Shown here is a 181-nucleotide sequence from Camelus dromedarius, a member of the family "Small nucleolar RNA SNORA81".
RNA sequence: AUGUUCUUGUUUAAGCACCGUGCUGAAACUGCACAAACUAGGGCCACAUCUUGGACUUCGUAGUAAUGCUGGCAGAGUACACACAAGAAGAAGAGUAAUUAUACUUGACUGUAAAGACUGGGAUGGCCCACCUCUGUCUUAAUGUCUGGUGUCCAUUGUCUUAAGGUUUGAUGUGCUGUGU
Numbered sequence: 001a002u003g004u005u006c007u008u009g010u011u012u013a014a015g016c017a018c019c020g021u022g023c024u025g026a027a028a029c030u031g032c033a034c035a036a037a038c039u040a041g042g043g044c045c046a047c048a049u050c051u052u053g054g055a056c057u058u059c060g061u062a063g064u065a066a067u068g069c070u071g072g073c074a075g076a077g078u079a080c081a082c083a084c085a086a087g088a089a090g091a092a093g094a095g096u097a098a099u100u101a102u103a104c105u106u107g108a109c110u111g112u113a114a115a116g117a118c119u120g121g122g123a124u125g126g127c128c129c130a131c132c133u134c135u136g137u138c139u140u141a142a143u144g145u146c147u148g149g150u151g152u153c154c155a156u157u158g159u160c161u162u163a164a165g166g167u168u169u170g171a172u173g174u175g176c177u178g179u180g181u
Stems, first nucleotide, its partner, number of pairs: 018077001021074005028067001030065002035057001038054006100175004105170001107168002120152001122150001124148003
Notes
The source organism's lineage runs through Eukaryota, Opisthokonta, Deuterostomia, Boreoeutheria and Camelus. Rfam links the family to the GO terms nucleolus and RNA processing. A search with the family's covariance model found it, with a score of 124 bits.